[Rfam]
RNA sequence: ACCAGGGAAGCCGAAAACUGGUUGAAGAGUAGGCA
Numbered sequence: 001a002c003c004a005g006g007g008a009a010g011c012c013g014a015a016a017a018c019u020g021g022u023u024g025a026a027g028a029g030u031a032g033g034c035a
Stems, first nucleotide, its partner, number of pairs: 002021004010034003